[Rfam]
RNA: Small nucleolar RNA SNORA27
RNA sequence: AAACCCCUGUUCACUUUGCCAAAUGGAUUUGUGUCUUUAUUGCUCAUUAAUUGGGGCAAAGGAAAUAUCCUUUUAAAACUCAGGCAAACUGAGUGUUUGUCUUGUAUCCUGUCAGAGGAAAGAAAU
Number, nucleotide and partner (000 for none) at each position: 001a000002a000003a000004c000005c000006c000007c000008u000009g000010u000011u000012c000013a000014c000015u000016u000017u000018g000019c000020c000021a000022a000023a000024u000025g000026g000027a000028u000029u000030u000031g000032u058033g057034u056035c055036u054037u000038u000039a000040u050041u049042g048043c000044u000045c000046a000047u000048u042049a041050a040051u000052u000053g000054g036055g035056g034057c033058a032059a000060a000061g000062g000063a000064a000065a000066u000067a000068u119069c118070c117071u116072u115073u114074u000075a000076a000077a000078a000079c000080u000081c104082a102083g101084g100085c099086a098087a097088a096089c095090u000091g000092a000093g000094u000095g089096u088097u087098u086099g085100u084101c083102u082103u000104g081105u000106a000107u000108c000109c000110u000111g000112u000113c000114a073115g072116a071117g070118g069119a068120a000121a000122g000123a000124a000125a000126u000